[Rfam]
RNA sequence: UGGAGGACUGAGAAAGUUUAGCGGCUUGUUCUGUGCUGUUAUAACUGGUUAUAACCUCCUAAAUGGAAAAUAAGGCAGAUGCAAUAACCGGCUCUAUAAGACACUUAAGAACUGAUGUUGUGUUUGUGAACAUAAU
Numbered sequence: 001u002g003g004a005g006g007a008c009u010g011a012g013a014a015a016g017u018u019u020a021g022c023g024g025c026u027u028g029u030u031c032u033g034u035g036c037u038g039u040u041a042u043a044a045c046u047g048g049u050u051a052u053a054a055c056c057u058c059c060u061a062a063a064u065g066g067a068a069a070a071u072a073a074g075g076c077a078g079a080u081g082c083a084a085u086a087a088c089c090g091g092c093u094c095u096a097u098a099a100g101a102c103a104c105u106u107a108a109g110a111a112c113u114g115a116u117g118u119u120g121u122g123u124u125u126g127u128g129a130a131c132a133u134a135a136u
Stems, first nucleotide, its partner, number of pairs: 002059005015046004019041007080128003086123001089120002096116002099113002